[Rfam]
This 85-nucleotide sequence from Gossypium anomalum belongs to the Rfam family "MIR7486 microRNA precursor family".

Nucleotides: 085
Base pairs, nucleotide, nucleotide: 001084002083003082004081005080006079007078008077009076010075011074012073013072014071015070016069017068018067019066020065021064023062024061025060026059027058028057029054030053031052033050035048036047038045039044
Number, partner (000 for none) and nucleotide at each position: 001084c002083c003082c004081g005080g006079g007078g008077a009076a010075g011074c012073g013072u014071u015070u016069u017068g018067u019066c020065c021064a022000c023062g024061u025060c026059a027058g028057c029054a030053a031052a032000g033050c034000a035048c036047g037000c038045c039044c040000u041000c042000a043000a044039g045038g046000a047036c048035g049000c050033g051000a052031u053030u054029u055000a056000u057028g058027c059026u060025g061024a062023c063000g064021u065020g066019g067018a068017c069016a070015a071014a072013a073012c074011g075010c076009u077008u078007c079006c080005c081004u082003g083002g084001g085000g